[Rfam]
glmS glucosamine-6-phosphate activated ribozyme aptamer: a 165-nucleotide RNA from Desmospora activa.
RNA sequence: ACCCGUUGAUAAGCGCCAGAACUGUGGUGGAUGAGAACUGCAGUUGACGAGGUGGAGGCGGAUCGAUUUUUUCGGCGGAUACCUCCCGGCUUGCAUCGGAGCCGAGGAGCUGGGGAACAAAUCCUGGGGGUGACCUCGGUGACAAAAUCCCUGGCACGAUGAUGA
Numbered sequence: 001a002c003c004c005g006u007u008g009a010u011a012a013g014c015g016c017c018a019g020a021a022c023u024g025u026g027g028u029g030g031a032u033g034a035g036a037a038c039u040g041c042a043g044u045u046g047a048c049g050a051g052g053u054g055g056a057g058g059c060g061g062a063u064c065g066a067u068u069u070u071u072u073c074g075g076c077g078g079a080u081a082c083c084u085c086c087c088g089g090c091u092u093g094c095a096u097c098g099g100a101g102c103c104g105a106g107g108a109g110c111u112g113g114g115g116a117a118c119a120a121a122u123c124c125u126g127g128g129g130g131u132g133a134c135c136u137c138g139g140u141g142a143c144a145a146a147a148u149c150c151c152u153g154g155c156a157c158g159a160u161g162a163u164g165a
Base pairs, nucleotide, nucleotide: 020045021044022043023042024041025040026039027038054086055085056084057083058082063075064074065073066072087104088103089102090101091100092099109155110154111153112152113151114150115149124139125138126137127136128135129134
The organism belongs to Desmospora activa, within Bacteria. It scores 99 bits against the family's covariance model.